[Rfam]
RNA sequence: GGCGUCAUCGGGGGGAGCCCCCUUUCGGGCUGAGAGGCGGGCAUGGGGCCCGCGACCCCUGGAACCUGAUCCGGUUAGGACCGGCGAAGGGAUCGAUGGACCGCGACCGC
Numbered sequence: 001g002g003c004g005u006c007a008u009c010g011g012g013g014g015g016a017g018c019c020c021c022c023u024u025u026c027g028g029g030c031u032g033a034g035a036g037g038c039g040g041g042c043a044u045g046g047g048g049c050c051c052g053c054g055a056c057c058c059c060u061g062g063a064a065c066c067u068g069a070u071c072c073g074g075u076u077a078g079g080a081c082c083g084g085c086g087a088a089g090g091g092a093u094c095g096a097u098g099g100a101c102c103g104c105g106a107c108c109g110c
Base pairs, nucleotide, nucleotide: 006098007097008096009095010094011059012058013057014056017030018029019028020027037053038052039051040050041049065090066089067088071084072083073082074081
Background: The record is a 110-nucleotide RNA from Caldovatus sediminis, which matches "TPP riboswitch aptamer (THI element)" in Rfam. The family's consensus secondary structure is taken from published work. The organism belongs to Caldovatus, within Bacteria.